[Rfam]
RNA: S-element
RNA sequence: CGUCAAGAGUCUUUGGCGCCGUUUUGGUGAGCGAAUUUCCUUUGCCUGCUGAAAGGUGAGAGACAAUG
Dot-bracket structure: ........((((((..((((.((((((.(.(((((.....))))).).))))))))))))))))....